[Rfam]
RNA sequence: GAUUGUGGGUAGUCGCUGUUGUCACCAGCUUGUCUGGGAGACGAUAGAGGAAAGUCCAGGCUCGCCCGGGCUGCGAUGCCCGGAGUGUUCGUACCUAGUGCAAACUAGGGCAGUGAGGUUCGCCUCAUUGACGGCGCAGAAAGGGUUCUCCCUGAGACCCAAGUACGCUGAAAGUGCCACAGAAACGUAGCUUCUCUGGCGACAGAGAAGAUGGAACGAGGUAAACCCUGCGAGCGAGAAACCCAAAUUAGGUAGGGGAACCGUCUGGACGGAAUUGAACGAAAAGGACGGAUGGCAAAAGAAAUUUUGCCAUAGAUAGAUGACUACAGCUCUUCGUGCGAGGGGAAGGUCCGUUUGCAGCACGAGAGAUACAGAACCUGGCUUAUAGCA
Number, nucleotide and partner (000 for none) at each position: 001g000002a000003u000004u390005g389006u388007g386008g000009g327010u326011a325012g324013u323014c322015g000016c047017u046018g045019u044020u043021g042022u041023c040024a000025c000026c000027a000028g000029c000030u000031u000032g000033u000034c000035u000036g000037g000038g000039a000040g023041a022042c021043g020044a019045u018046a017047g016048a000049g000050g000051a000052a384053a383054g382055u000056c381057c380058a379059g378060g377061c238062u237063c236064g235065c234066c083067c082068g081069g080070g079071c078072u000073g000074c000075g000076a000077u000078g071079c070080c069081c068082g067083g066084a000085g000086u000087g000088u000089u233090c232091g231092u230093a229094c109095c108096u107097a106098g105099u104100g000101c000102a000103a000104a099105c098106u097107a096108g095109g094110g132111c130112a129113g128114u127115g126116a125117g124118g123119u000120u000121c000122g000123c118124c117125u116126c115127a114128u113129u112130g111131a000132c110133g228134g227135c000136g168137c167138a000139g000140a000141a000142a000143g160144g159145g158146u157147u000148c156149u155150c154151c000152c000153u000154g150155a149156g148157a146158c145159c144160c143161a000162a000163g000164u000165a000166c000167g137168c136169u000170g000171a000172a000173a000174g226175u225176g222177c221178c220179a000180c000181a000182g000183a000184a000185a000186c000187g000188u000189a000190g000191c210192u209193u208194c207195u206196c205197u204198g203199g000200c000201g000202a000203c198204a197205g196206a195207g194208a193209a192210g191211a000212u000213g000214g000215a000216a000217c000218g000219a000220g178221g177222u176223a000224a000225a175226c174227c134228c133229u093230g092231c091232g090233a089234g065235c064236g063237a062238g061239a000240a000241a000242c257243c256244c255245a000246a000247a000248u000249u000250a000251g000252g000253u000254a000255g244256g243257g242258g000259a000260a000261c291262c290263g289264u288265c287266u286267g000268g000269a000270c000271g000272g000273a000274a000275u000276u000277g000278a000279a000280c000281g000282a000283a000284a000285a000286g266287g265288a264289c263290g262291g261292a313293u312294g311295g310296c309297a308298a307299a306300a305301g000302a000303a000304a000305u300306u299307u298308u297309g296310c295311c294312a293313u292314a000315g000316a000317u000318a000319g000320a000321u000322g014323a013324c012325u011326a010327c009328a000329g000330c368331u367332c366333u000334u365335c364336g363337u362338g361339c360340g000341a000342g000343g000344g000345g000346a000347a000348g000349g000350u000351c000352c000353g000354u000355u000356u000357g000358c000359a000360g339361c338362a337363c336364g335365a334366g332367a331368g330369a000370u000371a000372c000373a000374g000375a000376a000377c060378c059379u058380g057381g056382c054383u053384u052385a000386u007387a000388g006389c005390a004
Bacterial RNase P class B: a 390-nucleotide RNA from Brevibacillus laterosporus. Rfam describes the family as follows. Ribonuclease P (RNase P) is a ubiquitous endoribonuclease, found in archaea, bacteria and eukarya as well as chloroplasts and mitochondria. Its best characterised activity is the generation of mature 5'-ends of tRNAs by cleaving the 5'-leader elements of precursor-tRNAs. Cellular RNase Ps are ribonucleoproteins. RNA from bacterial RNase Ps retains its catalytic activity in the absence of the protein subunit, i.e. it is a ribozyme. A search with the family's covariance model found it, with a score of 256 bits. For this family Rfam cites "Ribonuclease P: unity and diversity in a tRNA processing ribozyme" (Frank and Pace, Annu Rev Biochem, 1998).